[Rfam]
This 263-nucleotide sequence from bacterium HR25 belongs to the Rfam family "Bacterial large signal recognition particle RNA".
By type it is a non-coding RNA gene.
The literature on the family includes a 2002 paper in Nucleic Acids Res by Regalia et al., "Prediction of signal recognition particle RNA genes".
The family is grouped with related families in Rfam's "SRP clan".
From the family's description: The signal recognition particle (SRP) is a universally conserved ribonucleoprotein involved in the co-translational targeting of proteins to membranes.
RNA sequence: CCGUGCUAGGCGGGGAGCUGGCGGUGCCCUGGACCCGCAAUCCGCCAUAGCGGGGCUGAAUUCCCGCUCGAGGUCCGGCGCCGUGGUCACUGCCGCCGCUGUACGGCGAUGAUGGCUGGGUCCUGCGCGGCGGGGCGCUAUGAACCCCGUCAGGCCUGGAAGGGAGCAGCGGUAAGUAGUAGCCCCGGGCGCCGCAGGUAGGCCUGGUCGGAGCUGGUUAACGGCGGUAAGCCCGUGGUGACGGGUCGACAGCGGGUGCACGG
Numbered sequence: 001c002c003g004u005g006c007u008a009g010g011c012g013g014g015g016a017g018c019u020g021g022c023g024g025u026g027c028c029c030u031g032g033a034c035c036c037g038c039a040a041u042c043c044g045c046c047a048u049a050g051c052g053g054g055g056c057u058g059a060a061u062u063c064c065c066g067c068u069c070g071a072g073g074u075c076c077g078g079c080g081c082c083g084u085g086g087u088c089a090c091u092g093c094c095g096c097c098g099c100u101g102u103a104c105g106g107c108g109a110u111g112a113u114g115g116c117u118g119g120g121u122c123c124u125g126c127g128c129g130g131c132g133g134g135g136c137g138c139u140a141u142g143a144a145c146c147c148c149g150u151c152a153g154g155c156c157u158g159g160a161a162g163g164g165a166g167c168a169g170c171g172g173u174a175a176g177u178a179g180u181a182g183c184c185c186c187g188g189g190c191g192c193c194g195c196a197g198g199u200a201g202g203c204c205u206g207g208u209c210g211g212a213g214c215u216g217g218u219u220a221a222c223g224g225c226g227g228u229a230a231g232c233c234c235g236u237g238g239u240g241a242c243g244g245g246u247c248g249a250c251a252g253c254g255g256g257u258g259c260a261c262g263g
Base pairs, nucleotide, nucleotide: 001263002262003261004260005259006258009057010056011055012030013029014028015027017025018024019023034054035053036052037051038050063256064255065254066253067252068251072247073246074245075244076243079240080239081238082237083236084235085234086233091229092228094226095225096224097223098222100221103218104217105215106214107213113210114209115208116207117206118205119204120203121202122198123197124196125195126194127193128189131187132186133185134184135183137180138179139178140177141176147172148171149170150169155164156163157162